The record is a 183-nucleotide RNA sequence from Vitis vinifera, which matches "MIR159 microRNA precursor family" in Rfam. NCBI's taxonomy places the organism under Eukaryota, Streptophyta, Gunneridae, Pentapetalae, Vitis. The family has 66 seed sequences and 3,649 matches in Rfam 15.1. Rfam's curators put it in the seed alignment. Pairs were carried over by alignment from the consensus structure, which was predicted with WAR. A reference for the family is Rajagopalan et al. (2006), "A diverse and evolutionarily fluid set of microRNAs in Arabidopsis thaliana", Genes Dev.
RNA sequence: UUACAUUGAAGAGAGCUUUCUUCAGUCCACUCAUGGGUGGCAGUAGGAUUGAAUUAGCUGCCGACUCCAUUCAUCCAAAUACUGUGUUAAGGACUACCCAGUAAAUGAUUGAAUGAUGCGGGAGACAAAUUGGAUCUUAAGCUCCCUGUGCUUGGACUGAAGGGAGCUCCCUUCACUGCAAUC
Numbered sequence: 001u002u003a004c005a006u007u008g009a010a011g012a013g014a015g016c017u018u019u020c021u022u023c024a025g026u027c028c029a030c031u032c033a034u035g036g037g038u039g040g041c042a043g044u045a046g047g048a049u050u051g052a053a054u055u056a057g058c059u060g061c062c063g064a065c066u067c068c069a070u071u072c073a074u075c076c077a078a079a080u081a082c083u084g085u086g087u088u089a090a091g092g093a094c095u096a097c098c099c100a101g102u103a104a105a106u107g108a109u110u111g112a113a114u115g116a117u118g119c120g121g122g123a124g125a126c127a128a129a130u131u132g133g134a135u136c137u138u139a140a141g142c143u144c145c146c147u148g149u150g151c152u153u154g155g156a157c158u159g160a161a162g163g164g165a166g167c168u169c170c171c172u173u174c175a176c177u178g179c180a181a182u183c
Base pairs, nucleotide, nucleotide: 013169014168015167016166017165018164019163020162023159024158025157026156027155028154029153036146058124059123061121062120063119068115069114070113071112076107